[Rfam]
RNA sequence: UUGCGUGCCGUGUCAACCGGACGUGACAGGGAUGAUGAAUGCGAGGGUUUUCCGGUUCUCCUCGUGGCCAACGGAUCGGCAGUCGAGCGUCCCCCUGUCCGGCCC
Numbered sequence: 001u002u003g004c005g006u007g008c009c010g011u012g013u014c015a016a017c018c019g020g021a022c023g024u025g026a027c028a029g030g031g032a033u034g035a036u037g038a039a040u041g042c043g044a045g046g047g048u049u050u051u052c053c054g055g056u057u058c059u060c061c062u063c064g065u066g067g068c069c070a071a072c073g074g075a076u077c078g079g080c081a082g083u084c085g086a087g088c089g090u091c092c093c094c095c096u097g098u099c100c101g102g103c104c105c
Base pairs, nucleotide, nucleotide: 007103008102009101011023012022013021014020025099026098027097028096029095030094034091035090036089037088040066041065042064043063044062045061046060067080068079069078
Dot-bracket structure: ......(((.((((.....)))).((((((...((((..(((((((.............)))))))(((........))).......))))..)))))).)))..